Record summary
Shown here is a 75-nucleotide RNA sequence from Vulpes vulpes, a member of the family "Small nucleolar RNA SNORD113/SNORD114 family". Pairs were carried over by alignment from the consensus structure, which is taken from published work. The imprinted human domain at 14q32 contains two clusters of tandemly repeated small nucleolar RNAs named 14q(I) and 14q(II) snoRNAs. These two clusters are named SNORD113 and SNORD114 respectively in the HGNC approved gene symbol nomenclature. Its Rfam clan is "SNORD74 clan". A search with the family's covariance model found it, with a score of 91 bits. The source organism's lineage runs through Eukaryota, Metazoa, Bilateria, Sarcopterygii and Vulpes. On this family, see Cavaille et al., Hum Mol Genet 2002: "Identification of tandemly-repeated C/D snoRNA genes at the imprinted human 14q32 domain reminiscent of those at the Prader-Willi/Angelman syndrome region".
[Rfam]
RNA sequence: UGGACCAAUGAUGACAGCUGGUGGCGUAUGAGUCAUAUACGAUGAAUGCUAUGUGUCUGGAAGUCUGAGGUCCAG
Number, nucleotide and partner (000 for none) at each position: 001u000002g073003g072004a071005c070006c069007a000008a000009u000010g000011a000012u000013g000014a000015c000016a000017g000018c000019u000020g000021g000022u000023g000024g000025c000026g000027u000028a000029u000030g000031a000032g000033u000034c000035a000036u000037a000038u000039a000040c000041g000042a000043u000044g000045a000046a000047u000048g000049c000050u000051a000052u000053g000054u000055g000056u000057c000058u000059g000060g000061a000062a000063g000064u000065c000066u000067g000068a000069g006070g005071u004072c003073c002074a000075g000